[Rfam]
RNA sequence: AGUCAUAUGCUUGUCUCAAAGAUUAAGCCAUGCAUGUCUAAGUAUAAAUAAAUUUAUAUUGUGAAACUGCGAAUGGCUCAUUAAAUCAGUUAUGAUCUACGUGACAUAUUUCUUUACUACUUGGAUAACCGUGGUAAUUCUAGAGCUAAUACAUGCAAAAAAGCCCUGACUUCGGAAGGGGUGCACUUAUUAGAUAAAGCCAACGCUGGGUAAAACCAGUUUUCCUUGGUGAUUCAUAAUAAUUUAGCGGAUCGCAUGGCCUUGUGCUAGCGACGGUCCACUCGAUUUUCUGCCCUAUCAUGGUUGAGAUUGUAAGAUAGAGGCUUACAAUGCCUACAACGGGUAACGGGGAAUUAGGGUUCGAUUCCGGAGAGGGAGCCUGAGAAACGGCUACCACAUCCAAGGAAGGCAGCAGGCGCGCAAAUUACCCAAUCCCGACACGGGGAGGUAGUGACAAUAAAUAACAAUGCAGGGCCUUUAAGGUCUUGCAAUUGGAAUGAGUACAAUUUAAAUCCCUUAACGAGGAUCAAUUGGAGGGCAAGUCUGGUGCCAGCAGCCGCGGUAAUUCCAGCUCCAAUAGCGUAUAUUAAAGUUGUUG
Dot-bracket structure: (((.(((((((..(.(...((.....(((.(((..((...(((....((...........))...)))))......(((.......(((..(...((....((................(.((.....(..(((.....)))..)......)).).......(((((..(....)..)))))....((((((......((((........................))))......)))))).........((((.((((.....)))))))).....))...)).)..))).(((.....(((....((((((((.......)))))))))))......)))...((((((((....))))...))))))).((.(((..........))).)).(.((....)).)...)))))).).....(.(((...(((((...))))).)))).)....).).....(((((((((((((...)))))))))).)))......(((.(...........)).)).........((((((.......((((.....((....)).......)))))))))).))))))))))..........
A member of the RNA family "Eukaryotic small subunit ribosomal RNA" from Thamnidium elegans, 598 nucleotides of a longer RNA. A reference for the family is Yusupov et al. (2001), "Crystal structure of the ribosome at 5.5 A resolution", Science. It scores 1724 bits against the family's covariance model. Rfam 15.1 lists 75,755 matches to the family in 2,556 species. The family's consensus secondary structure is taken from published work.